c-di-AMP riboswitch aptamer (ydaO/yuaA leader): a 145-nucleotide sequence from Bacillus sp. V3-13. It scores 89 bits against the family's covariance model. Gene Ontology terms of the family: regulation of gene expression and cyclic-di-AMP binding.
[Rfam]
RNA sequence: AUAUUAUUUGCGCUUAAUCUGAAUUAAAGAACGGGGGAACCAAUUCGGCGGCUUUGCCGCAUGGGGUGAAUUCAUGAAUGAAAGGGCAUUUUGUUUCCAAGUCCUAACCCGACAGCUAACCUCGUCAGCGUCUUAGAGGGAACAG
Numbered sequence: 001a002u003a004u005u006a007u008u009u010g011c012g013c014u015u016a017a018u019c020u021g022a023a024u025u026a027a028a029g030a031a032c033g034g035g036g037g038a039a040c041c042a043a044u045u046c047g048g049c050g051g052c053u054u055u056g057c058c059g060c061a062u063g064g065g066g067u068g069a070a071u072u073c074a075u076g077a078a079u080g081a082a083a084g085g086g087c088a089u090u091u092u093g094u095u096u097c098c099a100a101g102u103c104c105u106a107a108c109c110c111g112a113c114a115g116c117u118a119a120c121c122u123c124g125u126c127a128g129c130g131u132c133u134u135a136g137a138g139g140g141a142a143c144a145g
Stems, first nucleotide, its partner, number of pairs: 011130004018030003031125006041063002064110003072081003084104004